[Rfam]
RNA: Alphaproteobacteria transfer-messenger RNA
RNA sequence: CCCCUUUUCUUUUGCCCGCGCGACGCCUAUAUCAAUGGUGUUCGCUUCGGCGGACUAUGGCGAUAAAUUGCUGCGUGCAAUAGGCACAACGGACCCGGGGGCAGUACCCGGCGGCUCCACCAUAAACCCCGGUUUUACGGGAUUUCUGACGGGGCCGAACUAGGAUCGACGUGGGCUGAAAAGCGUAGUUUUUGCUCGGGCUGAGUAACCCGUAAUAGGCUCAUUCUCAUAAGUGCCAACGAUAACGAAGCACUCGCAGUUGCAGCGUAAUUUUAAGGCCUAACGGUCUGAAUUUACAAAGCUAAAGCGCGGUUGGACCCACCGGGCAACAGAAGCGGAUUCC
Numbered sequence: 001c002c003c004c005u006u007u008u009c010u011u012u013u014g015c016c017c018g019c020g021c022g023a024c025g026c027c028u029a030u031a032u033c034a035a036u037g038g039u040g041u042u043c044g045c046u047u048c049g050g051c052g053g054a055c056u057a058u059g060g061c062g063a064u065a066a067a068u069u070g071c072u073g074c075g076u077g078c079a080a081u082a083g084g085c086a087c088a089a090c091g092g093a094c095c096c097g098g099g100g101g102c103a104g105u106a107c108c109c110g111g112c113g114g115c116u117c118c119a120c121c122a123u124a125a126a127c128c129c130c131g132g133u134u135u136u137a138c139g140g141g142a143u144u145u146c147u148g149a150c151g152g153g154g155c156c157g158a159a160c161u162a163g164g165a166u167c168g169a170c171g172u173g174g175g176c177u178g179a180a181a182a183g184c185g186u187a188g189u190u191u192u193u194g195c196u197c198g199g200g201c202u203g204a205g206u207a208a209c210c211c212g213u214a215a216u217a218g219g220c221u222c223a224u225u226c227u228c229a230u231a232a233g234u235g236c237c238a239a240c241g242a243u244a245a246c247g248a249a250g251c252a253c254u255c256g257c258a259g260u261u262g263c264a265g266c267g268u269a270a271u272u273u274u275a276a277g278g279c280c281u282a283a284c285g286g287u288c289u290g291a292a293u294u295u296a297c298a299a300a301g302c303u304a305a306a307g308c309g310c311g312g313u314u315g316g317a318c319c320c321a322c323c324g325g326g327c328a329a330c331a332g333a334a335g336c337g338g339a340u341u342c343c
Base pairs, nucleotide, nucleotide: 040055041054042053043052044051059196060195061194062193063192070189071188072187073186074185075184076183085175087173089172090171091170095111096110097109098108099107112157113156114155115154116153117152118151197212198211199210200209202223203222204221206219310324311323312322313321315341316340318338319337
Dot-bracket structure: .......................................(((((......)))))...(((((......(((((((........(.(.(((...(((((.......)))))(((((((................................)))))))............)))).).......)))))))..)))))((((.[[[.[..))))......].]]]......................................................................................((((.[[.[[.))))............]].]]..